The record is a 120-nucleotide RNA sequence from Shewanella loihica, which matches "Glycine riboswitch aptamer" in Rfam. The match comes from Rfam's covariance-model search (59 bits).

[Rfam]
RNA sequence: GGACGAGCCUCUGGAGAGACUGAGAGCCCAGGAUAACCCCUAGGUAUCACGGCGCCGAAGGCGAAAGUGCAGCCCCAAUGGCUGCGCGAAACGCUCAGGCAAAAGGACAGAGGAGAGGAU
Numbered sequence: 001g002g003a004c005g006a007g008c009c010u011c012u013g014g015a016g017a018g019a020c021u022g023a024g025a026g027c028c029c030a031g032g033a034u035a036a037c038c039c040c041u042a043g044g045u046a047u048c049a050c051g052g053c054g055c056c057g058a059a060g061g062c063g064a065a066a067g068u069g070c071a072g073c074c075c076c077a078a079u080g081g082c083u084g085c086g087c088g089a090a091a092c093g094c095u096c097a098g099g100c101a102a103a104a105g106g107a108c109a110g111a112g113g114a115g116a117g118g119a120u
Stems, first nucleotide, its partner, number of pairs: 008113006020052003054100003057096002061094003067087007